Shown here is a 36-nucleotide sequence from Niastella yeongjuensis, a member of the family "DUF805b RNA".
RNA sequence: UGUGGGUUAGCCGAAAACCACCAAACAGAGUAGGCA
Number, nucleotide and partner (000 for none) at each position: 001u000002g021003u020004g019005g018006g000007u000008u000009a000010g035011c034012c033013g000014a000015a000016a000017a000018c005019c004020a003021c002022c000023a000024a000025a000026c000027a000028g000029a000030g000031u000032a000033g012034g011035c010036a000
Clan: DUF805 clan. Pairs were carried over by alignment from the consensus structure, which is taken from published work.